[Rfam]
RNA sequence: GGCCUCCAGUGACGGAGACAUACCCUGGGAGGCCCAUGACUGGACUGGGAUGUAUUCAUACUGUUUGAAUGGACU
Numbered sequence: 001g002g003c004c005u006c007c008a009g010u011g012a013c014g015g016a017g018a019c020a021u022a023c024c025c026u027g028g029g030a031g032g033c034c035c036a037u038g039a040c041u042g043g044a045c046u047g048g049g050a051u052g053u054a055u056u057c058a059u060a061c062u063g064u065u066u067g068a069a070u071g072g073a074c075u
Stems, first nucleotide, its partner, number of pairs: 001075002004072002011065005020055004024049002027046002032041001
RNA: Small nucleolar RNA ZL2